[Rfam]
RNA sequence: UGGAAAUGAUGAAAUAGAGAUAAUUGGAUGUCAUUUUGAAUGGAGUGUGUGUGUGAUAAAUGGAAUUUAAACCAAGUCAGACUUGGGGUGGGGGGUGGAGGAUGUGUGUGUGUGCAACAUGUAUGGAAAAGGCUUGAAAUGGGGGUCCUGAUUUUCAGUGCUGACCUCCGGAGUGCAUCUGAGGCGUGUUGUGAAGUUUUGGGGUGCCCCAUUCCAACACUGCCAGUGAUUAAAGCCCAAGCAAGCCCCCCAGAACAAGCCUAAGCAUCCUAAAUCUCUGACAGGUUCAUUCAUGACAGUGAUCCUGUAAUCUGAUCUGA
Numbered sequence: 001u002g003g004a005a006a007u008g009a010u011g012a013a014a015u016a017g018a019g020a021u022a023a024u025u026g027g028a029u030g031u032c033a034u035u036u037u038g039a040a041u042g043g044a045g046u047g048u049g050u051g052u053g054u055g056a057u058a059a060a061u062g063g064a065a066u067u068u069a070a071a072c073c074a075a076g077u078c079a080g081a082c083u084u085g086g087g088g089u090g091g092g093g094g095g096u097g098g099a100g101g102a103u104g105u106g107u108g109u110g111u112g113u114g115c116a117a118c119a120u121g122u123a124u125g126g127a128a129a130a131g132g133c134u135u136g137a138a139a140u141g142g143g144g145g146u147c148c149u150g151a152u153u154u155u156c157a158g159u160g161c162u163g164a165c166c167u168c169c170g171g172a173g174u175g176c177a178u179c180u181g182a183g184g185c186g187u188g189u190u191g192u193g194a195a196g197u198u199u200u201g202g203g204g205u206g207c208c209c210c211a212u213u214c215c216a217a218c219a220c221u222g223c224c225a226g227u228g229a230u231u232a233a234a235g236c237c238c239a240a241g242c243a244a245g246c247c248c249c250c251c252a253g254a255a256c257a258a259g260c261c262u263a264a265g266c267a268u269c270c271u272a273a274a275u276c277u278c279u280g281a282c283a284g285g286u287u288c289a290u291u292c293a294u295g296a297c298a299g300u301g302a303u304c305c306u307g308u309a310a311u312c313u314g315a316u317c318u319g320a
Base pairs, nucleotide, nucleotide: 001319002318003317004316187219188218189217190216191215193213194212196209199206
Shown here is a 320-nucleotide sequence from Calypte anna, a member of the family "Small Cajal body-specific RNA 7". For this family Rfam cites "Cajal body-specific small nuclear RNAs: a novel class of 2'-O-methylation and pseudouridylation guide RNAs" (Darzacq et al., EMBO J, 2002). A search with the family's covariance model found it, with a score of 145 bits. It is annotated as a small Cajal body RNA.